RNA sequence: UACAACGUUCUCCAAAGUAGAGAACGUAAUCUAUCGUGAUAUAUGUCUAAAGAUAUUAUGCUCCUUACUUUGGAUAAUGUUGUA
Numbered sequence: 001u002a003c004a005a006c007g008u009u010c011u012c013c014a015a016a017g018u019a020g021a022g023a024a025c026g027u028a029a030u031c032u033a034u035c036g037u038g039a040u041a042u043a044u045g046u047c048u049a050a051a052g053a054u055a056u057u058a059u060g061c062u063c064c065u066u067a068c069u070u071u072g073g074a075u076a077a078u079g080u081u082g083u084a
Base pairs, nucleotide, nucleotide: 002083003082004081005080006079008077009076011074012073013072014071015070016069017068018067019066020065022063023062025060026059027058028057029056032055033054034053035052038047039046
The family of this 84-nucleotide sequence from Chrysodeixis includens is "mir-2763 microRNA precursor family".
The match comes from Rfam's covariance-model search (83 bits).
Its family is annotated with miRNA-mediated post-transcriptional gene silencing and RISC complex in the Gene Ontology.